Source information:
A member of the RNA family "MIR7486 microRNA precursor family" from Gossypium mustelinum, 87 nucleotides long. Gene Ontology terms of the family: miRNA-mediated post-transcriptional gene silencing and RISC complex.
RNA sequence: CACGUCAAUGCAAUUUGCUGACGUGGCAGCAAAUCGUGUCCACGUAAGCGCGGUUUGUGUCCACGUCAGCAAAGCGCGCUGACGUGG
Numbered sequence: 001c002a003c004g005u006c007a008a009u010g011c012a013a014u015u016u017g018c019u020g021a022c023g024u025g026g027c028a029g030c031a032a033a034u035c036g037u038g039u040c041c042a043c044g045u046a047a048g049c050g051c052g053g054u055u056u057g058u059g060u061c062c063a064c065g066u067c068a069g070c071a072a073a074g075c076g077c078g079c080u081g082a083c084g085u086g087g
Stems, first nucleotide, its partner, number of pairs: 001086007009078003014073008023064004029058010
Lineage of the source: Eukaryota > Viridiplantae > Pentapetalae > rosids > Gossypium.
The family has 9 seed sequences and 10,132 matches in Rfam 15.1.
A search with the family's covariance model found it, with a score of 73 bits.